[Rfam]
RNA sequence: UGAAAUCGAUAUACUGAUUCAGGGCCUUCUUGAAGACCCGAUGUACAAAUUUUGGAGACCCUGUCCUUUAUUGGGCAGGGUG
Numbered sequence: 001u002g003a004a005a006u007c008g009a010u011a012u013a014c015u016g017a018u019u020c021a022g023g024g025c026c027u028u029c030u031u032g033a034a035g036a037c038c039c040g041a042u043g044u045a046c047a048a049a050u051u052u053u054g055g056a057g058a059c060c061c062u063g064u065c066c067u068u069u070a071u072u073g074g075g076c077a078g079g080g081u082g
Stems, first nucleotide, its partner, number of pairs: 022039003026035003058081009
The family of this 82-nucleotide sequence from Caenorhabditis latens is "SmY spliceosomal RNA". The family's consensus secondary structure is taken from published work. For this family Rfam cites "A novel family of C. elegans snRNPs contains proteins associated with trans-splicing" (MacMorris et al., RNA, 2007). It scores 72 bits against the family's covariance model. Taxonomically the source falls in Caenorhabditis (Eukaryota, Opisthokonta, Rhabditina, Rhabditidae).